[Rfam]
RNA sequence: CCAGACCACUCCCGCACUCGGAUCGUCCGGCACGUUCCUGCCGGUGGAGGAGAAGAUU
Number, nucleotide and partner (000 for none) at each position: 001c000002c000003a000004g000005a000006c000007c000008a000009c000010u051011c050012c049013c000014g000015c046016a045017c000018u000019c000020g000021g000022a000023u000024c000025g000026u000027c044028c043029g042030g041031c040032a039033c000034g000035u000036u000037c000038c000039u032040g031041c030042c029043g028044g027045u016046g015047g000048a000049g012050g011051a010052g000053a000054a000055g000056a000057u000058u000
Overview
This 58-nucleotide RNA sequence from Streptomyces sp. ADI95-17 belongs to the Rfam family "msiK RNA". By type it is a cis-regulatory element. Pairs were carried over by alignment from the consensus structure, which is taken from published work.